[Rfam]
RNA sequence: AGAUGCCUCCAGCUGUGAGAACUGAAUUCCAUGAGUUGUUCUAACUACUAUGUCUCAGCCCAUGGUACUCAGUUCUGCAGCUUGGGUGCAUUUU
Numbered sequence: 001a002g003a004u005g006c007c008u009c010c011a012g013c014u015g016u017g018a019g020a021a022c023u024g025a026a027u028u029c030c031a032u033g034a035g036u037u038g039u040u041c042u043a044a045c046u047a048c049u050a051u052g053u054c055u056c057a058g059c060c061c062a063u064g065g066u067a068c069u070c071a072g073u074u075c076u077g078c079a080g081c082u083u084g085g086g087u088g089c090a091u092u093u094u
Base pairs, nucleotide, nucleotide: 008085009084011082012081013080018076019075020074021073022072023071024070025069033061035059036058037057038056